[Rfam]
RNA sequence: UACGUUCAACCUUUAUGGUCGGAAGUAAGCUUGAAGCUGAAGGAACGCAUU
Numbered sequence: 001u002a003c004g005u006u007c008a009a010c011c012u013u014u015a016u017g018g019u020c021g022g023a024a025g026u027a028a029g030c031u032u033g034a035a036g037c038u039g040a041a042g043g044a045a046c047g048c049a050u051u
Stems, first nucleotide, its partner, number of pairs: 003047005009019003022048001028038003
RNA: Glutamine riboswitch aptamer (glnA leader)